[Rfam]
RNA sequence: GUUUACUGUGAGUUUUGCAGGUUUGCUUUCAGCUUCUGAAAAUUUCUGCUGUGCAAAUCCAUGCAAAACUCUCUGUACCU
Numbered sequence: 001g002u003u004u005a006c007u008g009u010g011a012g013u014u015u016u017g018c019a020g021g022u023u024u025g026c027u028u029u030c031a032g033c034u035u036c037u038g039a040a041a042a043u044u045u046c047u048g049c050u051g052u053g054c055a056a057a058u059c060c061a062u063g064c065a066a067a068a069c070u071c072u073c074u075g076u077a078c079c080u
Stems, first nucleotide, its partner, number of pairs: 004077003008073001010071010020060002022057005028051001031050003

Shown here is an 80-nucleotide RNA from Oncorhynchus kisutch, a member of the family "mir-19 microRNA precursor family". The match comes from Rfam's covariance-model search (72 bits).